[Rfam]
RNA sequence: AGCUUUGCACAGUGGCAGUAUCAUGGCCAAUGAGGUCUAUCUGAGGCGCAAUUAUUGCUAAUUGAAAACUUAUCCCAAUACCCCGCCAUGACGACUGGAGAUAUAGUUCGCAUUGGCAAUUUUUGGCAGUCUCUACGGGGA
Numbered sequence: 001a002g003c004u005u006u007g008c009a010c011a012g013u014g015g016c017a018g019u020a021u022c023a024u025g026g027c028c029a030a031u032g033a034g035g036u037c038u039a040u041c042u043g044a045g046g047c048g049c050a051a052u053u054a055u056u057g058c059u060a061a062u063u064g065a066a067a068a069c070u071u072a073u074c075c076c077a078a079u080a081c082c083c084c085g086c087c088a089u090g091a092c093g094a095c096u097g098g099a100g101a102u103a104u105a106g107u108u109c110g111c112a113u114u115g116g117c118a119a120u121u122u123u124u125g126g127c128a129g130u131c132u133c134u135a136c137g138g139g140g141a
Base pairs, nucleotide, nucleotide: 020052021051024048026047027046028045034042035041085117086116087115088113089112090111093108094107095106096105097104130141131140132139133138
Rfam assigns this 141-nucleotide RNA from Aotus nancymaae to the family "U4 spliceosomal RNA". On this family, see Zwieb, Nucleic Acids Res 1997: "The uRNA database". About the family: U4 small nuclear RNA (U4 snRNA) is a component of the major U2-dependent spliceosome. The family has 177 seed sequences and 32,178 matches in Rfam 15.1. It is annotated as a spliceosomal small nuclear RNA. The family's consensus secondary structure is taken from published work.